[Rfam]
Nucleotides: 084
Base pairs, nucleotide, nucleotide: 012038013037017032018031019030020029021028022027041078042077043076044075046074047073048072049069050068051067056063057062
Number, partner (000 for none) and nucleotide at each position: 001000g002000a003000a004000a005000g006000u007000c008000a009000a010000a011000g012038g013037c014000a015000a016000g017032g018031u019030a020029u021028u022027u023000g024000a025000a026000a027022a028021a029020a030019u031018a032017c033000u034000c035000a036000c037013g038012c039000a040000a041078a042077g043076c044075u045000u046074c047073a048072g049069a050068u051067c052000u053000a054000a055000g056063g057062g058000g059000a060000a061000a062057c063056c064000u065000a066000a067051g068050a069049u070000a071000g072048c073047u074046g075044g076043g077042c078041u079000a080000c081000c082000a083000a084000g